[Rfam]
RNA: Sense overlapping transcript RNA 0042 (sot)
RNA sequence: AAGUAUCUCCGAGUCCUCGUCCAGAGGAUAGGAGUAACGGCUGGUUGGCACAGCCAUCGACGUUCCUGUUUGACAAGGACACUGGCGCAUUCGCGCCUCAAGAACAGGUCACGUCGUAAACCACAAUAUCCCAACGCGGGAAUCUUCGCCCUUCAGGGCGGGGA
Numbered sequence: 001a002a003g004u005a006u007c008u009c010c011g012a013g014u015c016c017u018c019g020u021c022c023a024g025a026g027g028a029u030a031g032g033a034g035u036a037a038c039g040g041c042u043g044g045u046u047g048g049c050a051c052a053g054c055c056a057u058c059g060a061c062g063u064u065c066c067u068g069u070u071u072g073a074c075a076a077g078g079a080c081a082c083u084g085g086c087g088c089a090u091u092c093g094c095g096c097c098u099c100a101a102g103a104a105c106a107g108g109u110c111a112c113g114u115c116g117u118a119a120a121c122c123a124c125a126a127u128a129u130c131c132c133a134a135c136g137c138g139g140g141a142a143u144c145u146u147c148g149c150c151c152u153u154c155a156g157g158g159c160g161g162g163g164a
Base pairs, nucleotide, nucleotide: 003038004037007034008033009032010031013029014028015027016026039055040054041053042052043051058116059115060114061113062112063111065108066107067106068105069104070103071102084097085096086095087094088093129141130140131139132138143164144163145162146161147160148159149158150157151156